[Rfam]
RNA sequence: GAGUCUAACGUGCACGCGAGUGUUUGGGUGGUAAACCCGAGCGCGUAAUGAAAGUGAAAGUCGAGAUCCUCGUCAUGGGGAGCACCGACGCCCGGACCUGAACUUUUGUGACGGCUCUGCGGUAGAGCGUGUACGUUGGGACCCGAAAGAUGGUGAACUAUGCCUGAAUAGGGUGAAGCCAGAGGAAACUCUGGUGGAGGCUCGUAGCGAUUCUGACGUGCAAAUCGAUCGUCGAAUUUGGGUAUAGGGGCGAAAGACUAAUCGAACCAUCUAGUAGCUGGUU
Number, nucleotide and partner (000 for none) at each position: 001g000002a000003g000004u000005c139006u138007a137008a136009c135010g134011u133012g132013c131014a130015c129016g128017c127018g000019a000020g044021u043022g042023u000024u000025u039026g038027g037028g036029u035030g000031g000032u000033a000034a000035a029036c028037c027038c026039g025040a000041g000042c022043g021044c020045g000046u000047a000048a055049u054050g000051a000052a000053a000054g049055u048056g000057a000058a000059a000060g089061u088062c087063g086064a000065g000066a000067u081068c080069c079070u000071c000072g000073u000074c000075a000076u000077g000078g000079g069080g068081a067082g000083c000084a000085c000086c063087g062088a061089c060090g000091c122092c121093c119094g118095g117096a000097c114098c113099u000100g000101a000102a109103c108104u000105u000106u000107u000108g103109u102110g000111a000112c000113g098114g097115c000116u000117c095118u094119g093120c000121g092122g091123u000124a000125g000126a000127g017128c016129g015130u014131g013132u012133a011134c010135g009136u008137u007138g006139g005140g000141a000142c281143c280144c000145g278146a000147a000148a000149g271150a270151u269152g268153g267154u266155g000156a000157a000158c247159u246160a245161u244162g243163c242164c241165u240166g239167a238168a237169u235170a000171g203172g202173g201174u200175g000176a000177a000178g195179c194180c193181a192182g191183a190184g189185g000186a000187a000188a000189c184190u183191c182192u181193g180194g179195u178196g000197g000198a000199g000200g174201c173202u172203c171204g000205u000206a000207g232208c231209g230210a229211u000212u228213c227214u000215g226216a225217c000218g000219u000220g000221c000222a000223a000224a000225u216226c215227g213228a212229u210230c209231g208232u207233c000234g000235a169236a000237u168238u167239u166240g165241g164242g163243u162244a161245u160246a159247g158248g000249g259250g258251c000252g000253a000254a000255a000256g000257a000258c250259u249260a000261a000262u000263c000264g000265a000266a154267c153268c152269a151270u150271c149272u000273a000274g000275u000276a000277g000278c145279u000280g143281g142282u000283u000
The family of this 283-nucleotide part of an RNA from Sparassis crispa is "Eukaryotic large subunit ribosomal RNA". Pairs were carried over by alignment from the consensus structure, which is taken from published work.